Notes: c-di-GMP-I riboswitch aptamer: a 79-nucleotide RNA sequence from Syntrophotalea carbinolica. The family is grouped with related families in Rfam's "c-di-GMP_I riboswitch clan". It scores 62 bits against the family's covariance model. The family's consensus secondary structure is taken from published work.
[Rfam]
RNA sequence: UUCCGAAAAUAGCAAACUCGGGGUAACUCGGGGACGCAAAGCCAUGGACCCGUUGCAGGCGGGCCGCCAGGCUACCGAA
Numbered sequence: 001u002u003c004c005g006a007a008a009a010u011a012g013c014a015a016a017c018u019c020g021g022g023g024u025a026a027c028u029c030g031g032g033g034a035c036g037c038a039a040a041g042c043c044a045u046g047g048a049c050c051c052g053u054u055g056c057a058g059g060c061g062g063g064c065c066g067c068c069a070g071g072c073u074a075c076c077g078a079a
Stems, first nucleotide, its partner, number of pairs: 012037002017032006040073004045069003049063006
Dot-bracket structure: ...........((...((((((....))))))...))..((((.(((.((((((...))))))...)))))))......